The record is a 76-nucleotide RNA sequence from Tribolium castaneum, which matches "let-7 microRNA precursor family" in Rfam. The sequence is in the family's curated seed alignment. About the family: This family represents the microRNAs (miRNA) let-7 and mir-98. let-7 was identified from a study of developmental timing in C. elegans, and was later shown to be part of a much larger class of non-coding RNAs termed miRNAs. Its Rfam clan is "let-7 microRNA precursor clan". A reference for the family is Rougvie (2001), "Control of developmental timing in animals", Nat Rev Genet.

Nucleotides: 076
Base pairs, nucleotide, nucleotide: 001076002075003074004073008069009068010067012065013064014063015062016061017060018059019058020057021056022055023054024053025052026051027050030038031037042047
Number, partner (000 for none) and nucleotide at each position: 001076u002075c003074u004073g005000u006000u007000u008069g009068a010067g011000g012065u013064a014063g015062u016061a017060g018059g019058u020057u021056g022055u023054a024053u025052a026051g027050u028000a029000a030038g031037u032000a033000u034000u035000a036000c037031a038030c039000c040000u041000a042047u043000u044000g045000g046000g047042a048000g049000u050027g051026c052025u053024g054023u055022a056021c057020a058019g059018c060017c061016u062015g063014c064013u065012a066000a067010c068009u069008u070000u071000c072000c073004c074003a075002g076001a